RNA sequence: UGUUGAUAAGGGCAAACUGCGGCGAAAGCUCAGGACGCAAAGCCUCCGGUCUAAGGGACAAAGGUCCUACGAUAGCGGGGUUGCCAGA
Number, nucleotide and partner (000 for none) at each position: 001u000002g000003u000004u000005g000006a000007u000008a000009a000010g000011g000012g038013c037014a000015a000016a000017c033018u032019g031020c000021g030022g029023c028024g000025a000026a000027a000028g023029c022030u021031c019032a018033g017034g000035a000036c000037g013038c012039a000040a000041a082042g081043c080044c079045u000046c078047c077048g076049g073050u072051c071052u000053a000054a000055g000056g067057g066058a065059c064060a000061a000062a000063g000064g059065u058066c057067c056068u000069a000070c000071g051072a050073u049074a000075g000076c048077g047078g046079g044080g043081u042082u041083g000084c000085c000086a000087g000088a000